The record is a 61-nucleotide RNA from Cnephaeus nilssonii, which matches "Vault RNA" in Rfam. Pairs were carried over by alignment from the consensus structure, which is taken from published work. The organism belongs to Cnephaeus, within Eukaryota. On this family, see Stadler et al., Mol Biol Evol 2009: "Evolution of Vault RNAs". By type it is a non-coding RNA gene.
RNA sequence: GGGCUGUCUUUAGCUCAGGGGUUCCUUUGAUUCAAGACCCCUGGUACCCUCCAGUUCUUUA
Number, nucleotide and partner (000 for none) at each position: 001g000002g056003g055004c054005u053006g052007u000008c000009u000010u000011u000012a000013g045014c044015u043016c000017a000018g041019g040020g039021g038022u000023u000024c000025c000026u036027u035028u034029g033030a000031u000032u000033c029034a028035a027036g026037a000038c021039c020040c019041c018042u000043g015044g014045u013046a000047c000048c000049c000050u000051c000052c006053a005054g004055u003056u002057c000058u000059u000060u000061a000